Bacterial RNase P class A: a 379-nucleotide sequence from Sanguibacter antarcticus. The match comes from Rfam's covariance-model search (311 bits). The source organism's lineage runs through Bacteria, Bacillati, Actinomycetota, Actinomycetes and Sanguibacter. It is annotated as a ribozyme. The base pairs follow the family's consensus structure, which is taken from published work.
Nucleotides: 379
Stems, first nucleotide, its partner, number of pairs: 001375010011364001012321007020043002023040006048362003052359005057224004064257004069220005074088005089103001090101004104215002109213002111209003126154002128150005133144004162180006182204001183202008228278004237269006249261004285304008
Number, partner (000 for none) and nucleotide at each position: 001375u002374g003373a004372g005371u006370u007369g008368g009367c010366c011364a012321g013320a014319c015318g016317a017316c018315c019000g020043c021042g022000u023040c024039g025038a026037c027036g028035g029000g030000u031000u032000c033000g034000c035028c036027c037026g038025u039024c040023g041000c042021c043020g044000a045000g046000g047000a048362a049361c050360g051000u052359c053358c054357g055356g056355g057224c058223u059222c060221c061000a062000c063000a064257g065256a066255g067254c068000g069220a070219g071218g072217u073216g074088g075087u076086g077085g078084g079000u080000a081000a082000c083000a084078c085077c086076c087075a088074c089103c090101c091100g092099g093098g094000g095000u096000g097000a098093c099092c100091c101090g102000c103089g104215g105214g106000a107000a108000a109213g110212u111209g112208c113207c114000a115000c116000a117000g118000a119000a120000a121000a122000g123000a124000g125000a126154c127153c128150g129149c130148c131147g132146g133144c134143g135142c136141g137000c138000u139000c140000g141136c142135g143134u144133g145000u146132c147131c148130g149129g150128u151000a152000a153127g154126g155000g156000u157000g158000a159000a160000a161000c162180g163179g164178u165177g166176g167175u168000g169000u170000a171000a172000g173000a174000g175167a176166c177165c178164a179163c180162c181000a182204g183202c184201g185200u186199g187198c188197c189196g190195g191000g192000u193000g194000a195190c196189c197188g198187g199186c200185g201184c202183g203000g204182c205000u206000a207113g208112g209111u210000a211000a212110a213109c214105c215104c216073c217072a218071c219070c220069u221060g222059g223058a224057g225000c226000a227000a228278g229277g230276u231275c232000a233000g234000a235000c236000a237269g238268g239267a240266u241265g242264c243000g244000c245000u246000c247000g248000a249261g250260g251259g252258c253000u254067g255066c256065u257064c258252g259251c260250c261249c262000g263000a264242g265241c266240a267239u268238c269237u270000g271000g272000g273000u274000a275231g276230g277229c278228c279000g280000c281000u282000a283000g284000a285304g286303g287302c288301g289300u290299g291298c292297g293000g294000c295000a296000a297292c298291g299290u300289a301288c302287g303286u304285c305000g306000u307000a308000g309000a310000u311000g312000g313000a314000u315018g316017g317016u318015c319014g320013u321012c322000g323000u324000c325000u326000g327000u328000g329000c330000a331000c332000g333000g334000g335000c336000a337000a338000c339000c340000a341000g342000c343000a344000c345000a346000g347000g348000c349000a350000c351000a352000g353000a354000a355056c356055c357054c358053g359052g360050c361049g362048u363000a364011u365000c366010g367009g368008c369007c370006a371005g372004c373003u374002c375001a376000u377000c378000c379000g